Shown here is a 183-nucleotide RNA, a member of the family "RT-15 RNA".

[Rfam]
RNA sequence: CACCGCCUGCCGCGUGAUCGUCAUGGCGACCACGCCCGUGCGGUUAUUGAAUCUGGUCGCGCCGCUGGCCACCCCGGCCACCGCCAUGCACACCACGGAUACCCCCGGCCCCGGCCGGCAUCGGUCCAGUGCAGUUUCCCGGCCGAGCAAUCGACCGGGCGACGUAGAUAGCGCGACUCAACG
Numbered sequence: 001c002a003c004c005g006c007c008u009g010c011c012g013c014g015u016g017a018u019c020g021u022c023a024u025g026g027c028g029a030c031c032a033c034g035c036c037c038g039u040g041c042g043g044u045u046a047u048u049g050a051a052u053c054u055g056g057u058c059g060c061g062c063c064g065c066u067g068g069c070c071a072c073c074c075c076g077g078c079c080a081c082c083g084c085c086a087u088g089c090a091c092a093c094c095a096c097g098g099a100u101a102c103c104c105c106c107g108g109c110c111c112c113g114g115c116c117g118g119c120a121u122c123g124g125u126c127c128a129g130u131g132c133a134g135u136u137u138c139c140c141g142g143c144c145g146a147g148c149a150a151u152c153g154a155c156c157g158g159g160c161g162a163c164g165u166a167g168a169u170a171g172c173g174c175g176a177c178u179c180a181a182c183g
Base pairs, nucleotide, nucleotide: 004042005041006040012035013034014033015032016031018029019028020027021026057176058175059174060173061172062171063083064082066080067079068078069077070076087133088132089131090130091129097127098126099125102124103123105118106117107116108115109114135162136161138159139158140157141156142155144153145152146151

Source information:
Rfam's curators put it in the seed alignment.